Annotation
A member of the RNA family "U1 spliceosomal RNA", 168 nucleotides long. The family's RNA type in Rfam is spliceosomal small nuclear RNA. Rfam describes the family as follows. U1 is a small nuclear RNA (snRNA) component of the spliceosome (involved in pre-mRNA splicing). Its 5' end forms complementary base pairs with the 5' splice junction, thus defining the 5' donor site of an intron. There are significant differences in sequence and secondary structure between metazoan and yeast U1 snRNAs, the latter being much longer (568 nucleotides as compared to 164 nucleotides in human).

RNA sequence: AUGUCUUCGUGGCGGGGGAGAGACGCUGUUGGUCCUGAUAAAGUGUUUUUCUUGGGGGAGGGUUUUUACUUUGUGUUUGGGAUGUGUUUGCUCCCGCGAUUUCCCCGAAUGAGAAAACUCGGCUGCAUAACUUGUGGUAGUGGGGGACUGCUUUUGCGCUUUUCUGUC
Numbered sequence: 001a002u003g004u005c006u007u008c009g010u011g012g013c014g015g016g017g018g019a020g021a022g023a024c025g026c027u028g029u030u031g032g033u034c035c036u037g038a039u040a041a042a043g044u045g046u047u048u049u050u051c052u053u054g055g056g057g058g059a060g061g062g063u064u065u066u067u068a069c070u071u072u073g074u075g076u077u078u079g080g081g082a083u084g085u086g087u088u089u090g091c092u093c094c095c096g097c098g099a100u101u102u103c104c105c106c107g108a109a110u111g112a113g114a115a116a117a118c119u120c121g122g123c124u125g126c127a128u129a130a131c132u133u134g135u136g137g138u139a140g141u142g143g144g145g146g147a148c149u150g151c152u153u154u155u156g157c158g159c160u161u162u163u164c165u166g167u168c
Base pairs, nucleotide, nucleotide: 012126013125014124015123016052017051018050019049020048021047023046024045025044029043030042053096055095056094057093059092061089062088066084069080097121098120099119100117101115102114105111142167144165145164146163147162150159151158
Dot-bracket structure: ...........((((((((((.(((...((...........)))))))))))(.(((.(.((...(..(..........)...)...))..)))))((((((..(.....)..)).).))).))))...............(.((((..((......))..)))).).